This 85-nucleotide RNA from Youngiibacter fragilis belongs to the Rfam family "Glycine riboswitch aptamer". The base pairs follow the family's consensus structure. A search with the family's covariance model found it, with a score of 69 bits.

RNA sequence: GGACGAGCCUCUGGAGAGACUCAUUGAGCACCGAAGGGGAAAGCCAAAUGGCGAAACUCUCAGGUAAAAGGACAGAGGAUGAUGG
Numbered sequence: 001g002g003a004c005g006a007g008c009c010u011c012u013g014g015a016g017a018g019a020c021u022c023a024u025u026g027a028g029c030a031c032c033g034a035a036g037g038g039g040a041a042a043g044c045c046a047a048a049u050g051g052c053g054a055a056a057c058u059c060u061c062a063g064g065u066a067a068a069a070g071g072a073c074a075g076a077g078g079a080u081g082a083u084g085g
Stems, first nucleotide, its partner, number of pairs: 006080001008078006020028003030065003033061002037059003043052002